[Rfam]
RNA: Small Cajal body specific RNA 1
Organism: Phaethon lepturus
RNA sequence: GAGCACUUGAUACUAACCGAGCCAUCUUGUAUCCCAGGUCUUGUGCAGAGGUCUGAGGUACACCUUGUGAUUGCUGGGUCUGAAAAGUGCAACAUUAAAACAAGCCAUGAAGUGUUUAAGCUCAGUGUAUAAAGGUUAACACCGGGUUAUAACUCAGAGGCACAGAA
Numbered sequence: 001g002a003g004c005a006c007u008u009g010a011u012a013c014u015a016a017c018c019g020a021g022c023c024a025u026c027u028u029g030u031a032u033c034c035c036a037g038g039u040c041u042u043g044u045g046c047a048g049a050g051g052u053c054u055g056a057g058g059u060a061c062a063c064c065u066u067g068u069g070a071u072u073g074c075u076g077g078g079u080c081u082g083a084a085a086a087g088u089g090c091a092a093c094a095u096u097a098a099a100a101c102a103a104g105c106c107a108u109g110a111a112g113u114g115u116u117u118a119a120g121c122u123c124a125g126u127g128u129a130u131a132a133a134g135g136u137u138a139a140c141a142c143c144g145g146g147u148u149a150u151a152a153c154u155c156a157g158a159g160g161c162a163c164a165g166a167a
Stems, first nucleotide, its partner, number of pairs: 003090006016079003020075003024071003028062003033058002035055001037053006104161003125140002129136002142157001144155004